[Rfam]
RNA sequence: GAAACCCUGCCUGGUAAGACUAAAGCCAAGUCACCAGUAGCGAGUCUUGGGUUCACAGGAGUAAUUCUGUGGACUAAGCGUAGACAGCAAGGUAGUAGGCCUGAAUGUGAUUGAGCCUCGAAAUGAGUUCAACGGGAAGGUCGACGGUUUCGAAACUCUGGAAGACUAUAUUUUGCUGAGCGAUAAGGCGAGUUCAGCGGAACUUCCCCGGGGUCGGAGAGCC
Numbered sequence: 001g002a003a004a005c006c007c008u009g010c011c012u013g014g015u016a017a018g019a020c021u022a023a024a025g026c027c028a029a030g031u032c033a034c035c036a037g038u039a040g041c042g043a044g045u046c047u048u049g050g051g052u053u054c055a056c057a058g059g060a061g062u063a064a065u066u067c068u069g070u071g072g073a074c075u076a077a078g079c080g081u082a083g084a085c086a087g088c089a090a091g092g093u094a095g096u097a098g099g100c101c102u103g104a105a106u107g108u109g110a111u112u113g114a115g116c117c118u119c120g121a122a123a124u125g126a127g128u129u130c131a132a133c134g135g136g137a138a139g140g141u142c143g144a145c146g147g148u149u150u151c152g153a154a155a156c157u158c159u160g161g162a163a164g165a166c167u168a169u170a171u172u173u174u175g176c177u178g179a180g181c182g183a184u185a186a187g188g189c190g191a192g193u194u195c196a197g198c199g200g201a202a203c204u205u206c207c208c209c210g211g212g213g214u215c216g217g218a219g220a221g222c223c
Base pairs, nucleotide, nucleotide: 011037012036013035014034018032019031021029025189026188040088041087044085045084046083047082048080049079050075051074052073053072054071055070056069057068058067059066060065112217113215115214116213117212118211119210120209134208135207136206137205138204139203140166141165142164145160146159147158171202172201173200174199175198176197177196178195179194180193181192
Group II catalytic intron D1-D4-6: a 223-nucleotide RNA from Alicyclobacillaceae bacterium I2511. About the family: Group II introns are found in rRNA, tRNA and mRNA of organelles in fungi, plants and protists, and also in mRNA in bacteria. Its family is annotated with Group II intron splicing in the Gene Ontology. The organism belongs to Alicyclobacillaceae, within Bacteria.